Background
Shown here is a 72-nucleotide RNA, a member of the family "tRNA". Gene Ontology term of the family: triplet codon-amino acid adaptor activity.
[Rfam]
RNA sequence: GUCCCUUUCGUCCAGAGGUUAGGACAUCGUCUUUUCAUGUCGAAGACACGGGUUCGAUUCCCGUAAGGGAUA
Numbered sequence: 001g002u003c004c005c006u007u008u009c010g011u012c013c014a015g016a017g018g019u020u021a022g023g024a025c026a027u028c029g030u031c032u033u034u035u036c037a038u039g040u041c042g043a044a045g046a047c048a049c050g051g052g053u054u055c056g057a058u059u060c061c062c063g064u065a066a067g068g069g070a071u072a
Base pairs, nucleotide, nucleotide: 001071002070003069004068005067006066007065010025011024012023013022027043028042029041031039048064049063050062051061052060